[Rfam]
RNA sequence: AAGUUUAGAGGACGGAACGGGCCGCCGUCGCCCCCGCCACCAUCUGAGGGUGCAGUGGCAUUAUGGGUUGGAGAUGCAGGAGUGUCGCCCUGCCUAAAUUU
Numbered sequence: 001a002a003g004u005u006u007a008g009a010g011g012a013c014g015g016a017a018c019g020g021g022c023c024g025c026c027g028u029c030g031c032c033c034c035c036g037c038c039a040c041c042a043u044c045u046g047a048g049g050g051u052g053c054a055g056u057g058g059c060a061u062u063a064u065g066g067g068u069u070g071g072a073g074a075u076g077c078a079g080g081a082g083u084g085u086c087g088c089c090c091u092g093c094c095u096a097a098a099u100u101u
Stems, first nucleotide, its partner, number of pairs: 001101008011029005020086003031071001033067003076093005
The family of this 101-nucleotide RNA sequence is "skipping-rope RNA". It is one of the family's seed sequences. The base pairs follow the family's consensus structure, which is taken from published work. By type it is a small RNA.